[Rfam]
RNA sequence: UGCACACAUGACUGUAACUCACUUUGGAUAAAAGUGCCUGCUAAAUGACAUAAU
Numbered sequence: 001u002g003c004a005c006a007c008a009u010g011a012c013u014g015u016a017a018c019u020c021a022c023u024u025u026g027g028a029u030a031a032a033a034g035u036g037c038c039u040g041c042u043a044a045a046u047g048a049c050a051u052a053a054u
Base pairs, nucleotide, nucleotide: 013043014041015040016039020036021035022034023033024032025031